[Rfam]
Notes:
Shown here is a 98-nucleotide RNA from Lactobacillus pasteurii, a member of the family "Purine riboswitch aptamer". Taxonomically the source falls in Lactobacillus pasteurii (Bacteria, Bacillati, Lactobacillales, Lactobacillaceae).
RNA sequence: CAAACAUCAAGUCAAAAUAUCUAUAUAUCGUUGUAAUAUGGUCAACAGUCUCUACCCAGAACCGUUAAUUCUGGACUAUAGGUAAUUGGAAGUCAGUU
Numbered sequence: 001c002a003a004a005c006a007u008c009a010a011g012u013c014a015a016a017a018u019a020u021c022u023a024u025a026u027a028u029c030g031u032u033g034u035a036a037u038a039u040g041g042u043c044a045a046c047a048g049u050c051u052c053u054a055c056c057c058a059g060a061a062c063c064g065u066u067a068a069u070u071c072u073g074g075a076c077u078a079u080a081g082g083u084a085a086u087u088g089g090a091a092g093u094c095a096g097u098u
Stems, first nucleotide, its partner, number of pairs: 018084008030046004056074006
Pairs were carried over by alignment from the consensus structure, which is taken from published work. Its family is annotated with purine nucleobase biosynthetic process in the Gene Ontology.